[Rfam]
RNA sequence: AGCCGUAGCACGCCUAAUCCCGGGCGCGUCGCCCGGGAACCGGGGACCCAUCGCACCUCGGGGUGAAUCCACUUCGGUGGUAGGGCAGCUCUCCGCGCCCGAACCCGUCAGCUAACCCGGUCGGCAGGAGGAGAGGAAGG
Numbered sequence: 001a002g003c004c005g006u007a008g009c010a011c012g013c014c015u016a017a018u019c020c021c022g023g024g025c026g027c028g029u030c031g032c033c034c035g036g037g038a039a040c041c042g043g044g045g046a047c048c049c050a051u052c053g054c055a056c057c058u059c060g061g062g063g064u065g066a067a068u069c070c071a072c073u074u075c076g077g078u079g080g081u082a083g084g085g086c087a088g089c090u091c092u093c094c095g096c097g098c099c100c101g102a103a104c105c106c107g108u109c110a111g112c113u114a115a116c117c118c119g120g121u122c123g124g125c126a127g128g129a130g131g132a133g134a135g136g137a138a139g140g
Stems, first nucleotide, its partner, number of pairs: 012125003018038009039121006049060001061106003069080004083100004